[Rfam]
RNA sequence: UGACGGACUAGGCCGGGCGGGUAGGCCCCGCUCCGAAGACCACGGUACGGCCUCAAGUGGUGGCCGAACCCGGGGGCGUGCGGGCGGACCGACGCGGGCCCCGGAAGCUGACGUGGAAGCCUCGUCCCACGGGGACAGCGGUCCGCGGGGCGCGUCCGCAGGGACGCGCUCCCGCGGUUCACCGGCGGCAGCGGGUCAGGCACGGAAGUGAGCAGCCCAUCGUCGGACGCCCGUCGCUCGUGGGGUCGCGGGGUGGAGGAGGCGACCGGGACUCCCCGUGGCGGAACGCCCGGGCAAUCCCGCCGUCCGCUU
Numbered sequence: 001u002g003a004c005g006g007a008c009u010a011g012g013c014c015g016g017g018c019g020g021g022u023a024g025g026c027c028c029c030g031c032u033c034c035g036a037a038g039a040c041c042a043c044g045g046u047a048c049g050g051c052c053u054c055a056a057g058u059g060g061u062g063g064c065c066g067a068a069c070c071c072g073g074g075g076g077c078g079u080g081c082g083g084g085c086g087g088a089c090c091g092a093c094g095c096g097g098g099c100c101c102c103g104g105a106a107g108c109u110g111a112c113g114u115g116g117a118a119g120c121c122u123c124g125u126c127c128c129a130c131g132g133g134g135a136c137a138g139c140g141g142u143c144c145g146c147g148g149g150g151c152g153c154g155u156c157c158g159c160a161g162g163g164a165c166g167c168g169c170u171c172c173c174g175c176g177g178u179u180c181a182c183c184g185g186c187g188g189c190a191g192c193g194g195g196u197c198a199g200g201c202a203c204g205g206a207a208g209u210g211a212g213c214a215g216c217c218c219a220u221c222g223u224c225g226g227a228c229g230c231c232c233g234u235c236g237c238u239c240g241u242g243g244g245g246u247c248g249c250g251g252g253g254u255g256g257a258g259g260a261g262g263c264g265a266c267c268g269g270g271a272c273u274c275c276c277c278g279u280g281g282c283g284g285a286a287c288g289c290c291c292g293g294g295c296a297a298u299c300c301c302g303c304c305g306u307c308c309g310c311u312u
Base pairs, nucleotide, nucleotide: 002311004309005308006307007306008305011065012064013063014062015034016033017031018030019029020028021027039061040060041059042058043057071302072301073300074299075298078295079294081292082290083289089284090283091282093280094279095278096277097276098275100270101269102268103267104266107263108262109261112258114256119254120253121252122251123250124249125248126244127243128242129241130240131239132238133237134235135234136233138231139229140228141179143177144176145175146174147173148172149171150169151168152167153166154165155164156163157162182226183225184224185223186222187221188220193218194217195216196215201210202209203208
Archaeal signal recognition particle RNA: a 312-nucleotide sequence from uncultured archaeon A07HB70.
A search with the family's covariance model found it, with a score of 155 bits.
Gene Ontology terms of the family: SRP-dependent cotranslational protein targeting to membrane, signal sequence recognition and signal recognition particle, plasma membrane targeting.